RNA: L31-Gammaproteobacteria ribosomal protein leader
Organism: Candidatus Symbiopectobacterium sp. PLON1
RNA sequence: CGUGUGGUGUCUGGCGAAACAGGGCUGGAUAGCGGCACGGCCUUAACAGAGGU
Numbered sequence: 001c002g003u004g005u006g007g008u009g010u011c012u013g014g015c016g017a018a019a020c021a022g023g024g025c026u027g028g029a030u031a032g033c034g035g036c037a038c039g040g041c042c043u044u045a046a047c048a049g050a051g052g053u
Base pairs, nucleotide, nucleotide: 001039002038003037004036005035007033008032011028012027013026014025